[Rfam]
RNA sequence: AUUUCUUUUGUCGCGUGUAUCCUCGAUUGAUGCAACCUCGGAUGUUUCA
Numbered sequence: 001a002u003u004u005c006u007u008u009u010g011u012c013g014c015g016u017g018u019a020u021c022c023u024c025g026a027u028u029g030a031u032g033c034a035a036c037c038u039c040g041g042a043u044g045u046u047u048c049a
Stems, first nucleotide, its partner, number of pairs: 010027004034046003
Rfam assigns this 49-nucleotide RNA from Zingiber officinale to the family "Plastid-ycf3 group II-D1 intron". NCBI's taxonomy places the organism under Eukaryota, Euphyllophyta, Liliopsida, Petrosaviidae, Zingiber. For this family Rfam cites "Retrograde signaling in plants: A critical review focusing on the GUN pathway and beyond" (Richter et al., Plant Commun, 2023). The match comes from Rfam's covariance-model search (56 bits). The base pairs follow the family's consensus structure, which was predicted with LocARNA. Rfam's curators write: Plastid rpl16 is a non-coding RNA (ncRNA) recognised in plastids. It was recognised in and intronic region of a ribosome rpl16 gene.